[Rfam]
RNA: pemK RNA
Organism: Oceanobacillus indicireducens
RNA sequence: AUAAUGAUACUCCUUUACCGUCAUGGUUCGAGCGUUCAAAGCGUCGCAAGCUAUGAGUAGAGCUGGAAGGAAUACUUGCAGGGGUGAAAUUCCCCUGG
Numbered sequence: 001a002u003a004a005u006g007a008u009a010c011u012c013c014u015u016u017a018c019c020g021u022c023a024u025g026g027u028u029c030g031a032g033c034g035u036u037c038a039a040a041g042c043g044u045c046g047c048a049a050g051c052u053a054u055g056a057g058u059a060g061a062g063c064u065g066g067a068a069g070g071a072a073u074a075c076u077u078g079c080a081g082g083g084g085u086g087a088a089a090u091u092c093c094c095c096u097g098g
Stems, first nucleotide, its partner, number of pairs: 013062006063081003067077003082094003